[Rfam]
RNA sequence: UUUUUAGUAUAAGUAUGUCCCCAGUAGUGUAUGGGACAUACUUAUACUAAAA
Numbered sequence: 001u002u003u004u005u006a007g008u009a010u011a012a013g014u015a016u017g018u019c020c021c022c023a024g025u026a027g028u029g030u031a032u033g034g035g036a037c038a039u040a041c042u043u044a045u046a047c048u049a050a051a052a
Stems, first nucleotide, its partner, number of pairs: 006048007014040003018036004

This 52-nucleotide RNA sequence from Callithrix jacchus belongs to the Rfam family "mir-1302 microRNA precursor family".
The source organism's lineage runs through Eukaryota, Metazoa, Mammalia, Callithrix and Callithrix.
Rfam 15.1 lists 16,160 matches to the family in 135 species.
Pairs were carried over by alignment from the consensus structure, which was predicted with WAR.
The match comes from Rfam's covariance-model search (66 bits).
On this family, see Morin et al., Genome Res 2008: "Application of massively parallel sequencing to microRNA profiling and discovery in human embryonic stem cells".